[Rfam]
RNA sequence: ACGAGUCAGGUUGUAUUACCUAACUCAGUAUCUAUUGAUACGUCUAUACUCAGUGAAUCACUGAGUUCAUAGAACCUCUUCUACACGUCGACAAGAUUAUUUCUUGUGUUUGCCAGUCAUCGUAUGGUGCCUGGCAUUUUUUAUC
Numbered sequence: 001a002c003g004a005g006u007c008a009g010g011u012u013g014u015a016u017u018a019c020c021u022a023a024c025u026c027a028g029u030a031u032c033u034a035u036u037g038a039u040a041c042g043u044c045u046a047u048a049c050u051c052a053g054u055g056a057a058u059c060a061c062u063g064a065g066u067u068c069a070u071a072g073a074a075c076c077u078c079u080u081c082u083a084c085a086c087g088u089c090g091a092c093a094a095g096a097u098u099a100u101u102u103c104u105u106g107u108g109u110u111u112g113c114c115a116g117u118c119a120u121c122g123u124a125u126g127g128u129g130c131c132u133g134g135c136a137u138u139u140u141u142u143a144u145c
Stems, first nucleotide, its partner, number of pairs: 005024002008021004028041005048066007091107006112135005118129001

Description
The family of this 145-nucleotide sequence from Vibrio tubiashii is "Vibrio RNA VqmR". The base pairs follow the family's consensus structure, which is taken from published work. The source organism's lineage runs through Bacteria, Pseudomonadota, Gammaproteobacteria, Vibrionaceae and Vibrio tubiashii. On this family, see Papenfort et al., Proc Natl Acad Sci U S A 2015: "Differential RNA-seq of Vibrio cholerae identifies the VqmR small RNA as a regulator of biofilm formation". Rfam's curators put it in the seed alignment. Repress the expression of multiple mRNAs including the rtx (repeats in toxin) toxin genes and the vpsT, which is required for biofilm formation. In fact, VqmR which is highly conserved in vibrionaceae, was shown to strongly inhibit biofilm formation through the repression of vpsT gene and could be the link between biofilm formation and quorum sensing. Its family is annotated with mRNA binding, sRNA-mediated gene silencing and negative regulation of single-species biofilm formation in the Gene Ontology. Rfam classes the family as a small RNA.